This 77-nucleotide sequence from Crocodylus porosus belongs to the Rfam family "Mammalian CPEB3 ribozyme".

[Rfam]
RNA sequence: AACCGAGAAUUCGAGGCCAUAGAAGAAGCACAAAUGCUGUGGCCCUGUCAGAUUCCAACAAAUCUGCAAAUUCUGGU
Numbered sequence: 001a002a003c004c005g006a007g008a009a010u011u012c013g014a015g016g017c018c019a020u021a022g023a024a025g026a027a028g029c030a031c032a033a034a035u036g037c038u039g040u041g042g043c044c045c046u047g048u049c050a051g052a053u054u055c056c057a058a059c060a061a062a063u064c065u066g067c068a069a070a071u072u073c074u075g076g077u
Base pairs, nucleotide, nucleotide: 013045015044016043017042018041021077024074025073026072027071028040029039030038049066050065051064052063053062054061
The base pairs follow the family's consensus structure, which is taken from published work.